[Rfam]
RNA sequence: AAUCCGGUUGAUCCUGCCGGACCCGACUGCUAUCGGAUAGAGAUUAAGCCAUGCUAGUUGAACAUUUCUUAACUAUGUGAGAAGUGUAGCGUACUGCUCAGUAACACGUGGUCAACCUGCCCUAGAGACGUGUAUAACCCCGGGAAACUGGGACUAAUACGCGAUAAGUCAUAUUUUCUGGAAUGGUUUAUGAUAUAAAGGAUUUUUCAAACAUGUUUGAUUUAUUGCUUUAGGAUGGGACUGCGGCCGAUCAGGUUGUUGGUGGGGUAAUGGCCCACCAAGCCUAUUACCGGUGCGGGCUUUGAGAGAAGGAGCCUGGAGAUGGACACUGAGAAAAGGGUCCAGGCCCUACGGGGCGCAGCAGGCGCGAAAACUUCGCAAUGUGCGAAAGCACGACGAGGUUAAUCCGAGUGCAACAUGCUGAAUGUAGCUUUUGAUAAGUGUAAGUAGUUUAUUGAAUAAGGGGAGGGAAAGUCUGGUGUCAGCCGCCGCGGUAAUACCAGCUCCCCGAGUGGUCGGGACGAUUAUUG
Numbered sequence: 001a002a003u004c005c006g007g008u009u010g011a012u013c014c015u016g017c018c019g020g021a022c023c024c025g026a027c028u029g030c031u032a033u034c035g036g037a038u039a040g041a042g043a044u045u046a047a048g049c050c051a052u053g054c055u056a057g058u059u060g061a062a063c064a065u066u067u068c069u070u071a072a073c074u075a076u077g078u079g080a081g082a083a084g085u086g087u088a089g090c091g092u093a094c095u096g097c098u099c100a101g102u103a104a105c106a107c108g109u110g111g112u113c114a115a116c117c118u119g120c121c122c123u124a125g126a127g128a129c130g131u132g133u134a135u136a137a138c139c140c141c142g143g144g145a146a147a148c149u150g151g152g153a154c155u156a157a158u159a160c161g162c163g164a165u166a167a168g169u170c171a172u173a174u175u176u177u178c179u180g181g182a183a184u185g186g187u188u189u190a191u192g193a194u195a196u197a198a199a200g201g202a203u204u205u206u207u208c209a210a211a212c213a214u215g216u217u218u219g220a221u222u223u224a225u226u227g228c229u230u231u232a233g234g235a236u237g238g239g240a241c242u243g244c245g246g247c248c249g250a251u252c253a254g255g256u257u258g259u260u261g262g263u264g265g266g267g268u269a270a271u272g273g274c275c276c277a278c279c280a281a282g283c284c285u286a287u288u289a290c291c292g293g294u295g296c297g298g299g300c301u302u303u304g305a306g307a308g309a310a311g312g313a314g315c316c317u318g319g320a321g322a323u324g325g326a327c328a329c330u331g332a333g334a335a336a337a338g339g340g341u342c343c344a345g346g347c348c349c350u351a352c353g354g355g356g357c358g359c360a361g362c363a364g365g366c367g368c369g370a371a372a373a374c375u376u377c378g379c380a381a382u383g384u385g386c387g388a389a390a391g392c393a394c395g396a397c398g399a400g401g402u403u404a405a406u407c408c409g410a411g412u413g414c415a416a417c418a419u420g421c422u423g424a425a426u427g428u429a430g431c432u433u434u435u436g437a438u439a440a441g442u443g444u445a446a447g448u449a450g451u452u453u454a455u456u457g458a459a460u461a462a463g464g465g466g467a468g469g470g471a472a473a474g475u476c477u478g479g480u481g482u483c484a485g486c487c488g489c490c491g492c493g494g495u496a497a498u499a500c501c502a503g504c505u506c507c508c509c510g511a512g513u514g515g516u517c518g519g520g521a522c523g524a525u526u527a528u529u530g
Stems, first nucleotide, its partner, number of pairs: 004020005022520010033410006040403002042368001048366003052363003057090003062087010097321003107245007116238002121234007129163004139152005168194006177186002201226002247293003254284003259281008296318004300311004323344005346357004374400001376399003382395005413431002416428004436456007463509006476503004485492002